A member of the RNA family "U4 spliceosomal RNA" from Puma concolor, 140 nucleotides long. The family's consensus secondary structure is taken from published work. By type it is a spliceosomal small nuclear RNA. The family is grouped with related families in Rfam's "U4 clan". The match comes from Rfam's covariance-model search (94 bits).
[Rfam]
RNA sequence: AGCUUUGCGGAGUGGCAGUAUCGUAGCCAAUGAGAUUUACUGAGGCGUGAUUAUUGCUAAUUGAAAGCUUUUCCCAAUACCCCACCAUGAUGACUUGAAAUAUAGUACACACUGGCAAUUUUUGAUAGUCUCUAGGGAGA
Numbered sequence: 001a002g003c004u005u006u007g008c009g010g011a012g013u014g015g016c017a018g019u020a021u022c023g024u025a026g027c028c029a030a031u032g033a034g035a036u037u038u039a040c041u042g043a044g045g046c047g048u049g050a051u052u053a054u055u056g057c058u059a060a061u062u063g064a065a066a067g068c069u070u071u072u073c074c075c076a077a078u079a080c081c082c083c084a085c086c087a088u089g090a091u092g093a094c095u096u097g098a099a100a101u102a103u104a105g106u107a108c109a110c111a112c113u114g115g116c117a118a119u120u121u122u123u124g125a126u127a128g129u130c131u132c133u134a135g136g137g138a139g140a
Base pairs, nucleotide, nucleotide: 020051021050022049023048024047026046027045028044034040085115086114088111089110093106094105095104129140130139131138132137